[Rfam]
RNA: TPP riboswitch aptamer (THI element)
RNA sequence: UAUUAUAUCAAGGGGAGCCUAUAAAGAUAGGCUGAGAGUGGAAUGUUAUUCCUUACCCUCAUAACCUGAUUUGGGUAAUGCCAACGUAGGGAGAGACUGGAUAGCUGCAU
Numbered sequence: 001u002a003u004u005a006u007a008u009c010a011a012g013g014g015g016a017g018c019c020u021a022u023a024a025a026g027a028u029a030g031g032c033u034g035a036g037a038g039u040g041g042a043a044u045g046u047u048a049u050u051c052c053u054u055a056c057c058c059u060c061a062u063a064a065c066c067u068g069a070u071u072u073g074g075g076u077a078a079u080g081c082c083a084a085c086g087u088a089g090g091g092a093g094a095g096a097c098u099g100g101a102u103a104g105c106u107g108c109a110u
Base pairs, nucleotide, nucleotide: 008096009095011059012058013057014056016053017032018031019030020029021028040052041051042050043049065090066089067088068087071084072083073082074081